[Rfam]
Nucleotides: 128
Base pairs, nucleotide, nucleotide: 002061003060004059005058006057007055008054009053010052013049014048019046020045021044024041025040026039027038028037029036064125067122068121069120071118072117073116079111080110083107084106085105086103087102088101089100090099
Number, partner (000 for none) and nucleotide at each position: 001000c002061c003060u004059g005058c006057c007055c008054c009053u010052a011000g012000a013049g014048g015000c016000a017000u018000u019046g020045c021044a022000g023000g024041u025040g026039u027038g028037a029036c030000u031000g032000g033000u034000g035000u036029g037028u038027c039026a040025c041024g042000u043000a044021u045020g046019c047000a048014u049013c050000a051000g052010u053009a054008g055007g056000u057006g058005g059004c060003a061002g062000a063000g064125a065000a066000g067122a068121g069120g070000c071118u072117a073116u074000g075000u076000c077000u078000a079111u080110g081000c082000c083107u084106a085105g086103u087102g088101u089100u090099c091000u092000g093000a094000c095000c096000c097000a098000u099090g100089a101088a102087c103086a104000u105085u106084u107083g108000a109000a110080u111079g112000a113000u114000u115000a116073g117072u118071a119000u120069c121068c122067u123000a124000g125064u126000a127000g128000u
The family of this 128-nucleotide RNA from Rattus norvegicus is "Small nucleolar RNA SNORA17".
The family is grouped with related families in Rfam's "SNORA17 clan".
Pairs were carried over by alignment from the consensus structure, which was predicted with RNAalifold.
It is annotated as an H/ACA-box small nucleolar RNA.
A search with the family's covariance model found it, with a score of 105 bits.
snoRNA ACA 17 belongs to the H/ACA family of snoRNAs and is predicted to guide pseudouridylation of the 28S rRNA at positions U4659 and U4598.
On this family, see Ofengand and Bakin, J Mol Biol 1997: "Mapping to nucleotide resolution of pseudouridine residues in large subunit ribosomal RNAs from representative eukaryotes, prokaryotes, archaebacteria, mitochondria and chloroplasts".
Rfam 15.1 lists 5,784 matches to the family in 673 species.